Notes: Rfam assigns this 99-nucleotide RNA sequence from Ricinus communis to the family "Small nucleolar RNA Z107/R87". The family has 9 seed sequences and 783 matches in Rfam 15.1. Gene Ontology terms of the family: RNA processing and nucleolus. It is annotated as a C/D-box small nucleolar RNA.
[Rfam]
RNA sequence: GUUCGCAAUGAUGAUUUUUAAAAUUCAAGCUCAACAGACCGGAUUACAAGCUUACUCUCUUUGGGAAGUUUGUAUGUCGAUAACCAGCACUGAGCGAUC
Numbered sequence: 001g002u003u004c005g006c007a008a009u010g011a012u013g014a015u016u017u018u019u020a021a022a023a024u025u026c027a028a029g030c031u032c033a034a035c036a037g038a039c040c041g042g043a044u045u046a047c048a049a050g051c052u053u054a055c056u057c058u059c060u061u062u063g064g065g066a067a068g069u070u071u072g073u074a075u076g077u078c079g080a081u082a083a084c085c086a087g088c089a090c091u092g093a094g095c096g097a098u099c
Base pairs, nucleotide, nucleotide: 001099003097004096005095006094
Background
The match comes from Rfam's covariance-model search (60 bits). Pairs were carried over by alignment from the consensus structure, which was predicted with RNAfold.